The family of this 267-nucleotide RNA sequence from Molossus molossus is "Mason-Pfizer monkey virus packaging signal". The family's RNA type in Rfam is cis-regulatory element. Rfam links the family to the GO term viral genome packaging.
RNA sequence: UGGCGCCCAACGUGGGGCUCCAGCACGGGGGAUCCAGUGAAGGACGCCUUUCGAGUGGCCGGCAGAAAGGAAAAGAAAAGAGGGAACGACGUGGGAACCUGCUGCGUCUGCACCCCUCGGGUAAGUGAACGGCGAUCAUGGGGCAAGAAAUGAGUAAGCAUGAAUUAUUUGUGGAACAGUUAGGACAAGCAUUAAAGGCACGAGGAGUAAAGGUGAAAGUAAAACAUUUAUGUAAAUAUUCUGAUUAUAUCAAAGAUCUCUGCCCUU
Numbered sequence: 001u002g003g004c005g006c007c008c009a010a011c012g013u014g015g016g017g018c019u020c021c022a023g024c025a026c027g028g029g030g031g032a033u034c035c036a037g038u039g040a041a042g043g044a045c046g047c048c049u050u051u052c053g054a055g056u057g058g059c060c061g062g063c064a065g066a067a068a069g070g071a072a073a074a075g076a077a078a079a080g081a082g083g084g085a086a087c088g089a090c091g092u093g094g095g096a097a098c099c100u101g102c103u104g105c106g107u108c109u110g111c112a113c114c115c116c117u118c119g120g121g122u123a124a125g126u127g128a129a130c131g132g133c134g135a136u137c138a139u140g141g142g143g144c145a146a147g148a149a150a151u152g153a154g155u156a157a158g159c160a161u162g163a164a165u166u167a168u169u170u171g172u173g174g175a176a177c178a179g180u181u182a183g184g185a186c187a188a189g190c191a192u193u194a195a196a197g198g199c200a201c202g203a204g205g206a207g208u209a210a211a212g213g214u215g216a217a218a219g220u221a222a223a224a225c226a227u228u229u230a231u232g233u234a235a236a237u238a239u240u241c242u243g244a245u246u247a248u249a250u251c252a253a254a255g256a257u258c259u260c261u262g263c264c265c266u267u
Stems, first nucleotide, its partner, number of pairs: 006031003012026003036050002039047001080118003083114002090106005126145002130142001133140002151194003154190002201243002204240002207237002211229005252267002255264001257262001